[Rfam]
RNA: c-di-GMP-I riboswitch aptamer
RNA sequence: UUGUUUAACUGCCAAACUCAUCGCGAGAUGAGGACGGAAAGCCACGGGUCUCAGAGUGUGUUGAGAUGUAUCUCAGAUAGCCGGGUUGCGGAA
Numbered sequence: 001u002u003g004u005u006u007a008a009c010u011g012c013c014a015a016a017c018u019c020a021u022c023g024c025g026a027g028a029u030g031a032g033g034a035c036g037g038a039a040a041g042c043c044a045c046g047g048g049u050c051u052c053a054g055a056g057u058g059u060g061u062u063g064a065g066a067u068g069u070a071u072c073u074c075a076g077a078u079a080g081c082c083g084g085g086u087u088g089c090g091g092a093a
Stems, first nucleotide, its partner, number of pairs: 012037002017032006040087004045083003048078003056071006